A member of the RNA family "Eukaryotic small subunit ribosomal RNA" from Ramalina farinacea, 167 nucleotides of a longer RNA. The base pairs follow the family's consensus structure, which is taken from published work. Its Rfam clan is "SSU clan".

[Rfam]
RNA sequence: CACCGCCCGUCGCUACUACCGAUUGAAUGGCUCAGUGAGGCCUUCGGACUGGCCCAGACGGGGCGGCAACGCUCUAUCAGGGCCGGAAAGUUGGUCAAACUUGGUCAUUUAGAGGAAGUAAAAGUCGUAACAAGGUUUCCGUAGGUGAACCUGCGGAAGGAUCAUUA
Numbered sequence: 001c002a003c004c005g006c007c008c009g010u011c012g013c014u015a016c017u018a019c020c021g022a023u024u025g026a027a028u029g030g031c032u033c034a035g036u037g038a039g040g041c042c043u044u045c046g047g048a049c050u051g052g053c054c055c056a057g058a059c060g061g062g063g064c065g066g067c068a069a070c071g072c073u074c075u076a077u078c079a080g081g082g083c084c085g086g087a088a089a090g091u092u093g094g095u096c097a098a099a100c101u102u103g104g105u106c107a108u109u110u111a112g113a114g115g116a117a118g119u120a121a122a123a124g125u126c127g128u129a130a131c132a133a134g135g136u137u138u139c140c141g142u143a144g145g146u147g148a149a150c151c152u153g154c155g156g157a158a159g160g161a162u163c164a165u166u167a
Stems, first nucleotide, its partner, number of pairs: 003134001005131001008127002011124001014120004019115002023111001025110008034101003039096004045090001049086007057078002061074004136159010